[Rfam]
Rfam assigns this 99-nucleotide RNA from Sanguibacter antarcticus to the family "TPP riboswitch aptamer (THI element)". The literature on the family includes a 2002 paper in J Biol Chem by Rodionov et al., "Comparative genomics of thiamin biosynthesis in procaryotes. New genes and regulatory mechanisms". Lineage of the source: Bacteria > Bacillati > Actinomycetes > Micrococcales > Sanguibacter.

RNA sequence: GUGAGCGACACGGGGUGCCCGCGCACGGUUCGGGCUGAGACCACACCCGUCGAACCUGAUCUAGCUCGUACUAGCGAAGGGAUGUCGCUCAUGACGUCU
Numbered sequence: 001g002u003g004a005g006c007g008a009c010a011c012g013g014g015g016u017g018c019c020c021g022c023g024c025a026c027g028g029u030u031c032g033g034g035c036u037g038a039g040a041c042c043a044c045a046c047c048c049g050u051c052g053a054a055c056c057u058g059a060u061c062u063a064g065c066u067c068g069u070a071c072u073a074g075c076g077a078a079g080g081g082a083u084g085u086c087g088c089u090c091a092u093g094a095c096g097u098c099u
Base pairs, nucleotide, nucleotide: 006087007086008085009084010083011049012048013047014046016043017035018034019033020032021031055080056079057078061074062073063072064071